[Rfam]
RNA sequence: GGUGUUGCGAUAAUUAAAAAAAAUUCUUCGUUCUGAAUGCCAUGGCAUGAAAGACCCUUUUUACAUCCCAUAGAAUAUGAGCAACA
Numbered sequence: 001g002g003u004g005u006u007g008c009g010a011u012a013a014u015u016a017a018a019a020a021a022a023a024u025u026c027u028u029c030g031u032u033c034u035g036a037a038u039g040c041c042a043u044g045g046c047a048u049g050a051a052a053g054a055c056c057c058u059u060u061u062u063a064c065a066u067c068c069c070a071u072a073g074a075a076u077a078u079g080a081g082c083a084a085c086a
Base pairs, nucleotide, nucleotide: 003086004085006083007082
This 86-nucleotide RNA from Capsicum annuum belongs to the Rfam family "Small nucleolar RNA snoR8a". The family's consensus secondary structure was predicted with WAR. Rfam links the family to the GO terms nucleolus and RNA processing. NCBI's taxonomy places the organism under Eukaryota, Streptophyta, Tracheophyta, Gunneridae, Capsicum.